[Rfam]
RNA: Small nucleolar RNA U105B
RNA sequence: CUGUGUGCAGCUGAUGACAACACUGCUGCUGAGGCUGAUUGUUCAAUCUCAAAGUAAACACCCUGACGCACUGUGG
Numbered sequence: 001c002u003g004u005g006u007g008c009a010g011c012u013g014a015u016g017a018c019a020a021c022a023c024u025g026c027u028g029c030u031g032a033g034g035c036u037g038a039u040u041g042u043u044c045a046a047u048c049u050c051a052a053a054g055u056a057a058a059c060a061c062c063c064u065g066a067c068g069c070a071c072u073g074u075g076g
Stems, first nucleotide, its partner, number of pairs: 005071004010021001012019002030045004